[Rfam]
MIR480 microRNA precursor family: a 114-nucleotide sequence from Populus alba. The family's consensus secondary structure was predicted with WAR. Gene Ontology terms of the family: miRNA-mediated post-transcriptional gene silencing and RISC complex. It scores 64 bits against the family's covariance model. NCBI's taxonomy places the organism under Eukaryota, Streptophytina, Embryophyta, Salicaceae, Populus.

RNA sequence: UAAUCUAUUGGGGACAGAUCUUCAUUUAAUUAUGACAGACUCACACCUGACUGCUCAAAAAUCACUUGUUACUAUGUGAACAAUAACUUUUUGAGAUUUUUAUUGAAGUCUAUU
Number, nucleotide and partner (000 for none) at each position: 001u000002a000003a000004u112005c000006u000007a109008u107009u106010g000011g000012g103013g000014a101015c000016a000017g000018a097019u096020c000021u000022u000023c093024a092025u000026u000027u086028a000029a084030u083031u082032a000033u000034g000035a000036c000037a000038g000039a000040c000041u000042c000043a000044c000045a000046c000047c000048u000049g000050a000051c000052u000053g000054c000055u000056c000057a000058a000059a000060a000061a000062u000063c000064a000065c000066u000067u000068g000069u000070u000071a000072c000073u000074a000075u000076g000077u000078g000079a000080a000081c000082a031083a030084u029085a000086a027087c000088u000089u000090u000091u000092u024093g023094a000095g000096a019097u018098u000099u000100u000101u014102a000103u012104u000105g000106a009107a008108g000109u007110c000111u000112a004113u000114u000